[Rfam]
RNA sequence: UCGACUCGGUAUUGAUGGCGACGUCAGUGAAAACUGGCGUUGGAGGUAGUCUGACAACGGUCAGGACGGUGUAAACCGCGAACAGCUCAGAGAGCUGGGGUGCCUCGUAAGAACUCAACAAUCUCACCGCCCCGAUGCACAGAUAUCAGUCG
Number, nucleotide and partner (000 for none) at each position: 001u000002c152003g151004a150005c149006u000007c000008g147009g146010u145011a144012u143013u142014g000015a000016u000017g000018g000019c042020g041021a040022c039023g038024u037025c036026a035027g034028u000029g000030a000031a000032a000033a000034c027035u026036g025037g024038c023039g022040u021041u020042g019043g106044a105045g104046g103047u000048a000049g000050u000051c064052u063053g062054a061055c060056a000057a000058c000059g000060g055061u054062c053063a052064g051065g000066a000067c000068g000069g000070u000071g000072u000073a000074a000075a000076c000077c000078g000079c000080g000081a000082a000083c098084a096085g095086c094087u093088c092089a000090g000091a000092g088093a087094g086095c085096u084097g000098g083099g000100g000101u000102g000103c046104c045105u044106c043107g000108u000109a000110a000111g000112a000113a000114c000115u000116c000117a000118a000119c000120a000121a000122u000123c000124u000125c000126a000127c000128c000129g000130c000131c000132c000133c000134g000135a000136u000137g000138c000139a000140c000141a000142g013143a012144u011145a010146u009147c008148a000149g005150u004151c003152g002
RNA: EFASI RNA